SraG RNA: a 165-nucleotide RNA from Pseudescherichia vulneris. The base pairs follow the family's consensus structure, which was predicted with PFOLD.
[Rfam]
RNA sequence: CCUCAGUGCAUCCUCGCGACUAAUGACAACCAACACCCCCCUGGGUGAAGUCUCUCAUUAGCCGCGCGAACCUCUGCAACGAAGAUCAUUCAAAGCAACAAUACAAUAGUUUAGAGUGAAUUGCUGCCGUCUGGUUGAAAAAAGGGGCCAUCAAGGCCCCUUUCU
Numbered sequence: 001c002c003u004c005a006g007u008g009c010a011u012c013c014u015c016g017c018g019a020c021u022a023a024u025g026a027c028a029a030c031c032a033a034c035a036c037c038c039c040c041c042u043g044g045g046u047g048a049a050g051u052c053u054c055u056c057a058u059u060a061g062c063c064g065c066g067c068g069a070a071c072c073u074c075u076g077c078a079a080c081g082a083a084g085a086u087c088a089u090u091c092a093a094a095g096c097a098a099c100a101a102u103a104c105a106a107u108a109g110u111u112u113a114g115a116g117u118g119a120a121u122u123g124c125u126g127c128c129g130u131c132u133g134g135u136u137g138a139a140a141a142a143a144g145g146g147g148c149c150a151u152c153a154a155g156g157c158c159c160c161u162u163u164c165u
Base pairs, nucleotide, nucleotide: 001084003082004081006080008077009076010075015068016067017066018065020061021060022059023058024057025056026055090119091118144160145159146158147157148156149155
Notes
Gene Ontology terms of the family: mRNA binding and sRNA-mediated gene silencing. The match comes from Rfam's covariance-model search (139 bits). It is annotated as a small RNA.